[Rfam]
RNA sequence: CGUUGCUUAAUGCAACAUUGCCAAUGCUUCAGUUGUCUGAGAGAAGCGCCUACGGGUGACAACGAUGCCAAUGUUCCGGCAAUCUGAGAGGAACGCCUACGGGUGAUUGCCACUGCCAAUCCUCGGGUCAUCUGAGACGGGAGCCUACGGGCGAUGACAGA
Numbered sequence: 001c002g003u004u005g006c007u008u009a010a011u012g013c014a015a016c017a018u019u020g021c022c023a024a025u026g027c028u029u030c031a032g033u034u035g036u037c038u039g040a041g042a043g044a045a046g047c048g049c050c051u052a053c054g055g056g057u058g059a060c061a062a063c064g065a066u067g068c069c070a071a072u073g074u075u076c077c078g079g080c081a082a083u084c085u086g087a088g089a090g091g092a093a094c095g096c097c098u099a100c101g102g103g104u105g106a107u108u109g110c111c112a113c114u115g116c117c118a119a120u121c122c123u124c125g126g127g128u129c130a131u132c133u134g135a136g137a138c139g140g141g142a143g144c145c146u147a148c149g150g151g152c153g154a155u156g157a158c159a160g161a
Stems, first nucleotide, its partner, number of pairs: 002016005026047005032063006048057003073094005079110006095104003122141004127158006143152003
STAXI RNA: a 161-nucleotide sequence from Proteus mirabilis. The source organism's lineage runs through Bacteria, Gammaproteobacteria, Enterobacterales, Morganellaceae and Proteus mirabilis. The family has 43 seed sequences and 130 matches in Rfam 15.1. It is annotated as a small RNA. The family's consensus secondary structure is taken from published work.